[Rfam]
RNA sequence: GGUACCUGUACUCGUUGCGGGGCAACGAUUGCCAGAGA
Numbered sequence: 001g002g003u004a005c006c007u008g009u010a011c012u013c014g015u016u017g018c019g020g021g022g023c024a025a026c027g028a029u030u031g032c033c034a035g036a037g038a
Base pairs, nucleotide, nucleotide: 005031013027014026015025016024017023018022
The family of this 38-nucleotide RNA sequence from Geosporobacter ferrireducens is "Selenocysteine insertion sequence 4". The family's consensus secondary structure was predicted with PFOLD. Gene Ontology term of the family: selenocysteine incorporation. The source organism's lineage runs through Bacteria, Bacillati, Bacillota, Clostridia and Geosporobacter. A search with the family's covariance model found it, with a score of 46 bits.